[Rfam]
The family of this 269-nucleotide RNA from Gracilibacillus dipsosauri is "BsrG". A search with the family's covariance model found it, with a score of 60 bits. By type it is a small RNA. The source organism's lineage runs through Bacteria, Bacillati, Caryophanales, Bacillaceae and Gracilibacillus. The literature on the family includes a 2008 paper in Gene by Saito et al., "Novel small RNA-encoding genes in the intergenic regions of Bacillus subtilis". The family has 6 seed sequences and 614 matches in Rfam 15.1. Rfam links the family to the GO terms autolysis and toxin activity.
RNA sequence: CAAUAGAUCGGCUUCAUAUGAGGGGUGGCACACCUUGUUGUACCUUCUUUGGAUUUGUCCAAUAGAAGGGAGGUGAUGCUUAUGGAUAUCGAAAACGUAUUAACACUAAUGAUCUCUUUUGGGAUGUUAGUUGCGUUUAUCAUGUCCGAUAAAAAUAAAAAAUAACCCCUCAUAUGCUUUUGCGUAGGCUCUGAGGGAUUAUCUCCUGAAGUGCCGCCCCUCUUAACGGGGUUCGGUCUAUUGUAACCGUAAGCGUUGCACCGCUUACG
Numbered sequence: 001c002a003a004u005a006g007a008u009c010g011g012c013u014u015c016a017u018a019u020g021a022g023g024g025g026u027g028g029c030a031c032a033c034c035u036u037g038u039u040g041u042a043c044c045u046u047c048u049u050u051g052g053a054u055u056u057g058u059c060c061a062a063u064a065g066a067a068g069g070g071a072g073g074u075g076a077u078g079c080u081u082a083u084g085g086a087u088a089u090c091g092a093a094a095a096c097g098u099a100u101u102a103a104c105a106c107u108a109a110u111g112a113u114c115u116c117u118u119u120u121g122g123g124a125u126g127u128u129a130g131u132u133g134c135g136u137u138u139a140u141c142a143u144g145u146c147c148g149a150u151a152a153a154a155a156u157a158a159a160a161a162a163u164a165a166c167c168c169c170u171c172a173u174a175u176g177c178u179u180u181u182g183c184g185u186a187g188g189c190u191c192u193g194a195g196g197g198a199u200u201a202u203c204u205c206c207u208g209a210a211g212u213g214c215c216g217c218c219c220c221u222c223u224u225a226a227c228g229g230g231g232u233u234c235g236g237u238c239u240a241u242u243g244u245a246a247c248c249g250u251a252a253g254c255g256u257u258g259c260a261c262c263g264c265u266u267a268c269g
Stems, first nucleotide, its partner, number of pairs: 001243005007237001008235001009216004014211001015176008023167002026164001031075002034073002084147006098111002122138003187202001217231004248269008